ArsR-gov region gene B: an 88-nucleotide RNA sequence from Erwinia tasmaniensis. For this family Rfam cites "Single transmembrane peptide DinQ modulates membrane-dependent activities" (Weel-Sneve et al., PLoS Genet, 2013). About the family: arsR-gov region gene B is transcribed opposite of dinQ (translates into a toxic single transmembrane peptide) with 30 complimentary nucleotides. AgrB appears to repress accumulation of dinQ by RNA interference and counteracts its toxicity.

[Rfam]
RNA sequence: UUAGUAGGAGAACACCCCGUUCCGGUUAGAGCAACCAACUCAGCACCAGAACAUUAAAGAAACCGACCUCACCAGUCGGUUUUUUUAU
Numbered sequence: 001u002u003a004g005u006a007g008g009a010g011a012a013c014a015c016c017c018c019g020u021u022c023c024g025g026u027u028a029g030a031g032c033a034a035c036c037a038a039c040u041c042a043g044c045a046c047c048a049g050a051a052c053a054u055u056a057a058a059g060a061a062a063c064c065g066a067c068c069u070c071a072c073c074a075g076u077c078g079g080u081u082u083u084u085u086u087a088u
Stems, first nucleotide, its partner, number of pairs: 021050002024047003029041003057085011
The source organism's lineage runs through Bacteria, Gammaproteobacteria, Enterobacterales, Erwiniaceae and Erwinia tasmaniensis. Gene Ontology terms of the family: gene silencing by RNA and antisense RNA metabolic process. The family's RNA type in Rfam is antisense RNA.